[Rfam]
RNA sequence: UUGGAGGAUUUGUAAACUUUAACUUGCAGACUUGAAGGAUUUGAAGACUUCAACUUACAUACUUGGAGGAUUUGAAGAAAGAAACU
Numbered sequence: 001u002u003g004g005a006g007g008a009u010u011u012g013u014a015a016a017c018u019u020u021a022a023c024u025u026g027c028a029g030a031c032u033u034g035a036a037g038g039a040u041u042u043g044a045a046g047a048c049u050u051c052a053a054c055u056u057a058c059a060u061a062c063u064u065g066g067a068g069g070a071u072u073u074g075a076a077g078a079a080a081g082a083a084a085c086u
Stems, first nucleotide, its partner, number of pairs: 001084002009076004014071001017068005025059002028056001032053006
Dot-bracket structure: ((......((((.(..(((((...((.(...((((((..........))))))..).))....)))))..).))))......))..